Rfam assigns this 393-nucleotide RNA sequence from Luteibacter anthropi to the family "transfer-messenger RNA". The organism belongs to Luteibacter, within Bacteria. Rfam's curators write: Bacterial tmRNA, also known as 10Sa RNA or SsrA, is named for its dual tRNA and mRNA-like properties. Its role is to liberate the mRNA from a stalled ribosome. To accomplish this part of the tmRNA is used as a reading frame that ends in a translation stop signal. The broken mRNA is replaced in the ribosome by the tmRNA and translation of the tmRNA leads to addition of a proteolysis tag to the incomplete protein enabling recognition by a protease.
RNA sequence: GGGGGUGUUCUGGUUUCGACGGGGGUAGUGCGAUCUACUGGUGCAUGCCGAGGGGGUAGCUUUCCUCGUUAAACCAGCUGCAAAAAACAUAGUUGCCAAUGACAACUACUACGGUGACAACUCGGUGGCUCUCGCCGCCUAAGCUGUCCGGCCCCUAAAAAAGGCCAAACCCCCGAACCGGUCUUGUGCUCAUGCUCGCCGGUGUAGGGUCACUAUCAUGAGACCGCCGAAAGACCCUCCGUCUGUGGGUCUGACGCCAGAUCAAUCAGAUAUGUCCGCCGGUGCGCUUAGCACGCCGUGCUGUCGGUGGACGAGAUCUAACGGUGAGCUAAGCAUGUAGAUCUGGAGAUUAAACGCCUUCGGACGCGGGUUCGACUCCCGCCACCUCCACCA
Numbered sequence: 001g002g003g004g005g006u007g008u009u010c011u012g013g014u015u016u017c018g019a020c021g022g023g024g025g026u027a028g029u030g031c032g033a034u035c036u037a038c039u040g041g042u043g044c045a046u047g048c049c050g051a052g053g054g055g056g057u058a059g060c061u062u063u064c065c066u067c068g069u070u071a072a073a074c075c076a077g078c079u080g081c082a083a084a085a086a087a088c089a090u091a092g093u094u095g096c097c098a099a100u101g102a103c104a105a106c107u108a109c110u111a112c113g114g115u116g117a118c119a120a121c122u123c124g125g126u127g128g129c130u131c132u133c134g135c136c137g138c139c140u141a142a143g144c145u146g147u148c149c150g151g152c153c154c155c156u157a158a159a160a161a162a163g164g165c166c167a168a169a170c171c172c173c174c175g176a177a178c179c180g181g182u183c184u185u186g187u188g189c190u191c192a193u194g195c196u197c198g199c200c201g202g203u204g205u206a207g208g209g210u211c212a213c214u215a216u217c218a219u220g221a222g223a224c225c226g227c228c229g230a231a232a233g234a235c236c237c238u239c240c241g242u243c244u245g246u247g248g249g250u251c252u253g254a255c256g257c258c259a260g261a262u263c264a265a266u267c268a269g270a271u272a273u274g275u276c277c278g279c280c281g282g283u284g285c286g287c288u289u290a291g292c293a294c295g296c297c298g299u300g301c302u303g304u305c306g307g308u309g310g311a312c313g314a315g316a317u318c319u320a321a322c323g324g325u326g327a328g329c330u331a332a333g334c335a336u337g338u339a340g341a342u343c344u345g346g347a348g349a350u351u352a353a354a355c356g357c358c359u360u361c362g363g364a365c366g367c368g369g370g371u372u373c374g375a376c377u378c379c380c381g382c383c384a385c386c387u388c389c390a391c392c393a
Base pairs, nucleotide, nucleotide: 001389002388003387004386005385006384007383020362021361022360023359024358025357026356029353032351033350034349035348038346039345040344041343044337045336046335047334048333049068050067051066052065053064056081057080058079059078060077061076146170147169150166151165152164153163172209173208174207176205178202179201180200181199186196189222190221191220192219193218194217228256229255232252233251234250235249244269274312275311276310277309278308279307280306281305282304283303285300286299287298295325296324297323366382367381368380369379370378
The base pairs follow the family's consensus structure, which is taken from published work. It scores 196 bits against the family's covariance model. Rfam classes the family as a non-coding RNA gene. On this family, see Laslett et al., Nucleic Acids Res 2002: "BRUCE: a program for the detection of transfer-messenger RNA genes in nucleotide sequences".